This 359-nucleotide part of an RNA from Halovenus carboxidivorans belongs to the Rfam family "Archaeal large subunit ribosomal RNA".
RNA sequence: CGGGAACAACCGACGUUAGGGAAUUCGGCAAGUUAGUCCCGUACCUUCGGAAGAAGGGAUGCCUGCUCGGGAAACGAGCAGGUCUCAGUGACUCGGACGCUCCGACUGUCUAAUAACAACAUAGGUGACCGCAAAUCCGCAAGGACUCGUACGGUCACUGAAUCCUGCCCAGUGCGGGUAUCUGAACACCUAGUACAAUAGGACGAAGGACCCGUCAACGGCGGGGGUAACUAUGACCCUCUUAAGGUAGCGUAGUACCUUGCCGCUUCAGUAGCGGCUUGCAUGAAUGGAUUAACGAGAGCGUCACUGUCCCAACGUUGGGCCCGGUGAACCAUACGUUCCAGUGCGGAGUCUGGAGA
Numbered sequence: 001c002g003g004g005a006a007c008a009a010c011c012g013a014c015g016u017u018a019g020g021g022a023a024u025u026c027g028g029c030a031a032g033u034u035a036g037u038c039c040c041g042u043a044c045c046u047u048c049g050g051a052a053g054a055a056g057g058g059a060u061g062c063c064u065g066c067u068c069g070g071g072a073a074a075c076g077a078g079c080a081g082g083u084c085u086c087a088g089u090g091a092c093u094c095g096g097a098c099g100c101u102c103c104g105a106c107u108g109u110c111u112a113a114u115a116a117c118a119a120c121a122u123a124g125g126u127g128a129c130c131g132c133a134a135a136u137c138c139g140c141a142a143g144g145a146c147u148c149g150u151a152c153g154g155u156c157a158c159u160g161a162a163u164c165c166u167g168c169c170c171a172g173u174g175c176g177g178g179u180a181u182c183u184g185a186a187c188a189c190c191u192a193g194u195a196c197a198a199u200a201g202g203a204c205g206a207a208g209g210a211c212c213c214g215u216c217a218a219c220g221g222c223g224g225g226g227g228u229a230a231c232u233a234u235g236a237c238c239c240u241c242u243u244a245a246g247g248u249a250g251c252g253u254a255g256u257a258c259c260u261u262g263c264c265g266c267u268u269c270a271g272u273a274g275c276g277g278c279u280u281g282c283a284u285g286a287a288u289g290g291a292u293u294a295a296c297g298a299g300a301g302c303g304u305c306a307c308u309g310u311c312c313c314a315a316c317g318u319u320g321g322g323c324c325c326g327g328u329g330a331a332c333c334a335u336a337c338g339u340u341c342c343a344g345u346g347c348g349g350a351g352u353c354u355g356g357a358g359a
Base pairs, nucleotide, nucleotide: 001326002325003324004323010321011320012319013318014317015316016315017314019312020311021310036060037059038058039057040056045050061083062082063081064080065079066078067077068076069075084088096305097304098303099302100301101300102299103297104296107121108120109119124159125158126157127156128155129154130153131152132149136145137144138143162292163291164290165289167222168221169220172219173218174215175214176213177212178211181210182209183208189202190201191200192199223241224240225239226238227237228236242246262278263277264276265275266274267273340357341356342355343354344353

About this RNA
It scores 2836 bits against the family's covariance model. Rfam 15.1 lists 2,955 matches to the family in 1,139 species. Its family is annotated with ribosome and structural constituent of ribosome in the Gene Ontology.